Notes:
Shown here is a 131-nucleotide sequence from Chelonia mydas, a member of the family "Small Cajal body specific RNA 15". Rfam classes the family as a small Cajal body RNA. The family is grouped with related families in Rfam's "SCARNA4 clan". About the family: scaRNAs are a specific class of small nuclear RNAs which localise to the Cajal bodies and guide the modification of RNA polymerase II transcribed spliceosomal RNAs U1, U2, U4, U5 and U12. ACA45 belongs to the H/ACA box class of guide RNAs as it has the predicted hairpin-hinge-hairpin-tail structure, the conserved H/ACA-box motifs and is found associated with GAR1. ACA45 is predicted to guide the pseudouridylation of residue U37 of the U2 spliceosomal snRNA. A search with the family's covariance model found it, with a score of 88 bits. Gene Ontology terms of the family: nucleolus, Cajal body and RNA processing. For this family Rfam cites "Cajal body-specific small nuclear RNAs: a novel class of 2'-O-methylation and pseudouridylation guide RNAs" (Darzacq et al., EMBO J, 2002).
[Rfam]
RNA sequence: UGGGAGGACGAAGAAAGUAGAGCCAGUGAAGUCAUGUUCACUCUACUGAUACUAUCCUCCUAAAUCAAAUGGUAGAAGAACAGGGCCUGUCUCGGAGAUGGAGUCAGGACCUACUUAAGCUACCAACAGUG
Numbered sequence: 001u002g003g004g005a006g007g008a009c010g011a012a013g014a015a016a017g018u019a020g021a022g023c024c025a026g027u028g029a030a031g032u033c034a035u036g037u038u039c040a041c042u043c044u045a046c047u048g049a050u051a052c053u054a055u056c057c058u059c060c061u062a063a064a065u066c067a068a069a070u071g072g073u074a075g076a077a078g079a080a081c082a083g084g085g086c087c088u089g090u091c092u093c094g095g096a097g098a099u100g101g102a103g104u105c106a107g108g109a110c111c112u113a114c115u116u117a118a119g120c121u122a123c124c125a126a127c128a129g130u131g
Base pairs, nucleotide, nucleotide: 003060004059005058006057007056008055011050018045019044020043021042022041026035027034028033071124072123073122074121075120077116082112083111084110086108087107088106089105